[Rfam]
RNA sequence: GCCCUCCUCAUGUUACCACAGACUGUGUUCUUAUGCUGACUCUAUAUAGAAAGGAGGCAGAGUAAACCCACCCCCUGUUUGCCUAAGCCCAGGCCGUUGUGUCCAGGCCAUUGUGUCUAGUCUGUAUUGUUGAAUGGGGGAUCCAUGG
Numbered sequence: 001g002c003c004c005u006c007c008u009c010a011u012g013u014u015a016c017c018a019c020a021g022a023c024u025g026u027g028u029u030c031u032u033a034u035g036c037u038g039a040c041u042c043u044a045u046a047u048a049g050a051a052a053g054g055a056g057g058c059a060g061a062g063u064a065a066a067c068c069c070a071c072c073c074c075c076u077g078u079u080u081g082c083c084u085a086a087g088c089c090c091a092g093g094c095c096g097u098u099g100u101g102u103c104c105a106g107g108c109c110a111u112u113g114u115g116u117c118u119a120g121u122c123u124g125u126a127u128u129g130u131u132g133a134a135u136g137g138g139g140g141a142u143c144c145a146u147g148g
Stems, first nucleotide, its partner, number of pairs: 003057006020041002025036004071140004076134001086123002089120001091118004
The record is a 148-nucleotide sequence from Microtus ochrogaster, which matches "Small nucleolar RNA SNORA51" in Rfam. The match comes from Rfam's covariance-model search (82 bits). Taxonomically the source falls in Microtus (Eukaryota, Teleostomi, Boreoeutheria, Euarchontoglires). Rfam 15.1 lists 2,121 matches to the family in 210 species. ACA51 is a member of the H/ACA class of snoRNA that guide the sites of modification of uridines to pseudouridines. By type it is an H/ACA-box small nucleolar RNA.